[Rfam]
RNA sequence: GGAUCUGAGGAGCGCUGCAGCCUUGCUACCCAAUCCGGUUGGAAAUCAGCCGGAUUGGGUAGCAGGGUCAGGCUCAGACCACCCAGUCUAAAUAAACAACGGCGCUCACCGUGA
Numbered sequence: 001g002g003a004u005c006u007g008a009g010g011a012g013c014g015c016u017g018c019a020g021c022c023u024u025g026c027u028a029c030c031c032a033a034u035c036c037g038g039u040u041g042g043a044a045a046u047c048a049g050c051c052g053g054a055u056u057g058g059g060u061a062g063c064a065g066g067g068u069c070a071g072g073c074u075c076a077g078a079c080c081a082c083c084c085a086g087u088c089u090a091a092a093u094a095a096a097c098a099a100c101g102g103c104g105c106u107c108a109c110c111g112u113g114a
Base pairs, nucleotide, nucleotide: 002080004078005077006076007075008074021067022066023065024064025063026062027061028060029059030058031057032056033055034054035053036052037051038050039049040048041047
Background: Rfam assigns this 114-nucleotide sequence from Thiohalophilus thiocyanatoxydans to the family "SAH (S-adenosyl-L-homocysteine) riboswitch aptamer". Lineage of the source: Bacteria > Pseudomonadota > Thiohalomonadales > Thiohalophilaceae > Thiohalophilus. It scores 52 bits against the family's covariance model.